[Rfam]
RNA sequence: CCGGUGUCCCGUUCCCCCGAUAGGGACGCCUGACGGGCCCUGCCGAUCCCCCCAUGCGGCAGGGCCCGUCCCAU
Numbered sequence: 001c002c003g004g005u006g007u008c009c010c011g012u013u014c015c016c017c018c019g020a021u022a023g024g025g026a027c028g029c030c031u032g033a034c035g036g037g038c039c040c041u042g043c044c045g046a047u048c049c050c051c052c053c054a055u056g057c058g059g060c061a062g063g064g065c066c067c068g069u070c071c072c073a074u
Stems, first nucleotide, its partner, number of pairs: 003030008032070013
Shown here is a 74-nucleotide sequence from Kocuria flava, a member of the family "6C RNA". The family's consensus secondary structure is taken from published work. Gene Ontology term of the family: sporulation. Rfam classes the family as a cis-regulatory element. The match comes from Rfam's covariance-model search (49 bits).